RNA sequence: CCCCUUGAAUCGCGGGGCCGGGGAGACUAUCAUCCUCGUCGUGGCUUCGGCCAAUAUGGCGAUAAAUGGAAUUCGGAAUAAACCAUACGGACCCCGGGGCGGUACCGGGCGGGUCCACCCAAGGCCUUUUGCGAAAGGCUUUUGGUGGGCCCGAAAUAGGAUUGACGUGGGUGUAAAGGGAUCUCUUUUGCUCGGCAUUGUACCGCCGUUAUCGGGCUAAACCUAUAGUUGCCAAUGACAACUAUGCUCCGGUGGCCGUCGCUGCGUAAUGCGGUGAAGGUACUGGGAAUCAAGCCCUAGGGGGUAGCACUUCUAGGCGGGGUUCGGAGGCACCUGGCAACAGAAGCCUCCACU
Numbered sequence: 001c002c003c004c005u006u007g008a009a010u011c012g013c014g015g016g017g018c019c020g021g022g023g024a025g026a027c028u029a030u031c032a033u034c035c036u037c038g039u040c041g042u043g044g045c046u047u048c049g050g051c052c053a054a055u056a057u058g059g060c061g062a063u064a065a066a067u068g069g070a071a072u073u074c075g076g077a078a079u080a081a082a083c084c085a086u087a088c089g090g091a092c093c094c095c096g097g098g099g100c101g102g103u104a105c106c107g108g109g110c111g112g113g114u115c116c117a118c119c120c121a122a123g124g125c126c127u128u129u130u131g132c133g134a135a136a137g138g139c140u141u142u143u144g145g146u147g148g149g150c151c152c153g154a155a156a157u158a159g160g161a162u163u164g165a166c167g168u169g170g171g172u173g174u175a176a177a178g179g180g181a182u183c184u185c186u187u188u189u190g191c192u193c194g195g196c197a198u199u200g201u202a203c204c205g206c207c208g209u210u211a212u213c214g215g216g217c218u219a220a221a222c223c224u225a226u227a228g229u230u231g232c233c234a235a236u237g238a239c240a241a242c243u244a245u246g247c248u249c250c251g252g253u254g255g256c257c258g259u260c261g262c263u264g265c266g267u268a269a270u271g272c273g274g275u276g277a278a279g280g281u282a283c284u285g286g287g288a289a290u291c292a293a294g295c296c297c298u299a300g301g302g303g304g305u306a307g308c309a310c311u312u313c314u315a316g317g318c319g320g321g322g323u324u325c326g327g328a329g330g331c332a333c334c335u336g337g338c339a340a341c342a343g344a345a346g347c348c349u350c351c352a353c354u
Stems, first nucleotide, its partner, number of pairs: 042053004058192005068185002071182004083171002087168003093109005110153007193208004198219001200217001203215002320335004326351006

Rfam assigns this 354-nucleotide sequence from Lichenibacterium ramalinae to the family "Alphaproteobacteria transfer-messenger RNA". It scores 279 bits against the family's covariance model. Lineage of the source: Bacteria > Pseudomonadota > Hyphomicrobiales > Lichenihabitantaceae > Lichenibacterium.